[Rfam]
Source information
The record is an 80-nucleotide RNA from Scleropages formosus, which matches "mir-219 microRNA precursor family" in Rfam.

RNA sequence: UCCGGCGCUGAUUGUCCAAACGCAAUUCUUGUGUCUGAAUCUGUGAAAUCAGGAGUUGUGGAUGGACAUCACGCUCCUGA
Numbered sequence: 001u002c003c004g005g006c007g008c009u010g011a012u013u014g015u016c017c018a019a020a021c022g023c024a025a026u027u028c029u030u031g032u033g034u035c036u037g038a039a040u041c042u043g044u045g046a047a048a049u050c051a052g053g054a055g056u057u058g059u060g061g062a063u064g065g066a067c068a069u070c071a072c073g074c075u076c077c078u079g080a
Stems, first nucleotide, its partner, number of pairs: 002079001004077002007074001009071004014067005021060011
The match comes from Rfam's covariance-model search (71 bits). A reference for the family is Lim et al. (2003), "Vertebrate microRNA genes", Science.